[Rfam]
RNA sequence: GCUCUAGUAUCCAUCCCGAUCCACAUGUAUUGAAGUGGAUUGGGGUGUAAAUUAGUUUAACUUACACCCCAAUCCACUUCAAUACAUGUGGGUUGGGGUGAAUAUUAGA
Numbered sequence: 001g002c003u004c005u006a007g008u009a010u011c012c013a014u015c016c017c018g019a020u021c022c023a024c025a026u027g028u029a030u031u032g033a034a035g036u037g038g039a040u041u042g043g044g045g046u047g048u049a050a051a052u053u054a055g056u057u058u059a060a061c062u063u064a065c066a067c068c069c070c071a072a073u074c075c076a077c078u079u080c081a082a083u084a085c086a087u088g089u090g091g092g093u094u095g096g097g098g099u100g101a102a103u104a105u106u107a108g109a
Stems, first nucleotide, its partner, number of pairs: 004108007012100003016096017035077009045067003
The family of this 109-nucleotide RNA from Zea mays is "MIR5565 microRNA precursor family". The organism belongs to Zea, within Eukaryota.